[Rfam]
RNA sequence: UCGCCCACAAUGCCCUCAACGGUUUCAACACGGAUGUGGCUGGGUGCGUGGUGUGAGCGGACAUGAUGCACUUGCCGGUCGGCGUUAGCCGAAGCCCUGGAAAGGGGCAUCCCUGCUGGGGCCGUGGCUGACGCUUAGGGCGUCUACCCAGUCGGUUCCUCCAAUGGUCUCCUCGCGCUAACCCCGUAGCGUGUGGUUUUUAGCGGGCUCCAGGCCCGCUUUUUUUU
Numbered sequence: 001u002c003g004c005c006c007a008c009a010a011u012g013c014c015c016u017c018a019a020c021g022g023u024u025u026c027a028a029c030a031c032g033g034a035u036g037u038g039g040c041u042g043g044g045u046g047c048g049u050g051g052u053g054u055g056a057g058c059g060g061a062c063a064u065g066a067u068g069c070a071c072u073u074g075c076c077g078g079u080c081g082g083c084g085u086u087a088g089c090c091g092a093a094g095c096c097c098u099g100g101a102a103a104g105g106g107g108c109a110u111c112c113c114u115g116c117u118g119g120g121g122c123c124g125u126g127g128c129u130g131a132c133g134c135u136u137a138g139g140g141c142g143u144c145u146a147c148c149c150a151g152u153c154g155g156u157u158c159c160u161c162c163a164a165u166g167g168u169c170u171c172c173u174c175g176c177g178c179u180a181a182c183c184c185c186g187u188a189g190c191g192u193g194u195g196g197u198u199u200u201u202a203g204c205g206g207g208c209u210c211c212a213g214g215c216c217c218g219c220u221u222u223u224u225u226u227u
Stems, first nucleotide, its partner, number of pairs: 005167003019125009029115002032112006038076003044071006051064004079092005095106004128151003171196002174193007202220008
Dot-bracket structure: ....(((...........(((((((((.((.(((((((((...((((((.((((......)))).))))))..)))..(((((....)))))..((((....)))))))))).)).)))))))))..(((..................))).............)))...((.(((((((......))))))).)).....((((((((...)))))))).......
This 227-nucleotide RNA from Paraburkholderia sp. DHOC27 belongs to the Rfam family "Burkholderia sRNA Bp1_Cand871_SIPHT". It scores 208 bits against the family's covariance model. The organism belongs to Paraburkholderia, within Bacteria. The base pairs follow the family's consensus structure, which was predicted with CMfinder.